[Rfam]
RNA sequence: AGUUGUGGAUGAUGAGACCACGAAUGCAAUACAGUUAUCCCUGUCUGAUGCAAUACUUUGGGUGCUGAAAGCAGUCGAUCUGACACAUCC
Number, nucleotide and partner (000 for none) at each position: 001a000002g089003u000004u087005g086006u085007g084008g000009a000010u000011g000012a000013u000014g000015a000016g000017a000018c000019c000020a000021c000022g000023a000024a000025u000026g000027c000028a000029a000030u000031a000032c000033a000034g000035u000036u000037a000038u000039c000040c000041c000042u000043g000044u000045c000046u000047g000048a000049u000050g000051c000052a000053a000054u000055a000056c000057u000058u000059u000060g000061g000062g000063u000064g000065c000066u000067g000068a000069a000070a000071g000072c000073a000074g000075u000076c000077g000078a000079u000080c000081u000082g000083a000084c007085a006086c005087a004088u000089c002090c000
Overview: A member of the RNA family "Small nucleolar RNA R38" from Ensete ventricosum, 90 nucleotides long. Pairs were carried over by alignment from the consensus structure, which was predicted with PFOLD. Rfam describes the family as follows. snoR38 is a C/D box small nucleolar RNA conserved across yeast, human, Arabidopsis and rice. It is encoded in the intron of elongation factor-1 gamma in both pombe and cerevisiae. snoR38 guides the methylation of 2'-O-ribose sites in 28S rRNA. For this family Rfam cites "Antisense snoRNAs: a family of nucleolar RNAs with long complementarities to rRNA" (Bachellerie et al., Trends Biochem Sci, 1995). The organism belongs to Ensete, within Eukaryota.